The record is a 76-nucleotide RNA from Dipodomys ordii, which matches "mir-3473 microRNA precursor family" in Rfam.
The match comes from Rfam's covariance-model search (73 bits).
The source organism's lineage runs through Eukaryota, Bilateria, Teleostomi, Dipodomyinae and Dipodomys.
[Rfam]
RNA sequence: AUCACUGAGCCACCUUCCCAGCCCGAUGCUGUUAUUUUUUAAAAAAUAUUUUGGGCUGGGGAGGUGGCUCAGUGGU
Numbered sequence: 001a002u003c004a005c006u007g008a009g010c011c012a013c014c015u016u017c018c019c020a021g022c023c024c025g026a027u028g029c030u031g032u033u034a035u036u037u038u039u040u041a042a043a044a045a046a047u048a049u050u051u052u053g054g055g056c057u058g059g060g061g062a063g064g065u066g067g068c069u070c071a072g073u074g075g076u
Base pairs, nucleotide, nucleotide: 002075003074004073005072006071007070008069009068010067011066012065013064014063015062016061017060018059019058020057021056022055023054024053

About this RNA:
The family's consensus secondary structure was predicted with RNAalifold.